[Rfam]
RNA sequence: AAACGCAAUUCGGCGUUUUAUGCAGUUUUAACAUUCUGCGUAGUAGGUAGAACCUACAUUGGACUUCUAUAAGGAGAAAUAUAAAAUG
Number, nucleotide and partner (000 for none) at each position: 001a018002a017003a016004c015005g014006c013007a000008a000009u000010u000011c000012g000013g006014c005015g004016u003017u002018u001019u042020a041021u040022g039023c038024a037025g036026u000027u000028u000029u000030a000031a000032c000033a000034u000035u000036c025037u024038g023039c022040g021041u020042a019043g057044u056045a055046g054047g000048u000049a000050g000051a000052a000053c000054c046055u045056a044057c043058a000059u000060u000061g000062g000063a000064c000065u000066u000067c000068u000069a000070u000071a000072a000073g000074g000075a000076g000077a000078a000079a000080u000081a000082u000083a000084a000085a000086a000087u000088g000
The family of this 88-nucleotide RNA sequence is "freshwater-2 RNA". Rfam's curators put it in the seed alignment. The base pairs follow the family's consensus structure, which is taken from published work.